[Rfam]
CyVA-1 RNA: a 77-nucleotide RNA sequence from Limnoraphis robusta. Rfam classes the family as a small RNA. Cyanobacteria, Acidobacteria (1 example), Verrucomicrobia (1 example).
RNA sequence: CAACGAUAGCAAGUGUUUUGUUGUGUGACUUGUGAAUUGCCCCCGAAGGAGAACGACGUCAGGGGAGCAAAUCGUUU
Numbered sequence: 001c002a003a004c005g006a007u008a009g010c011a012a013g014u015g016u017u018u019u020g021u022u023g024u025g026u027g028a029c030u031u032g033u034g035a036a037u038u039g040c041c042c043c044c045g046a047a048g049g050a051g052a053a054c055g056a057c058g059u060c061a062g063g064g065g066a067g068c069a070a071a072u073c074g075u076u077u
Stems, first nucleotide, its partner, number of pairs: 002076005009033004038069003041065004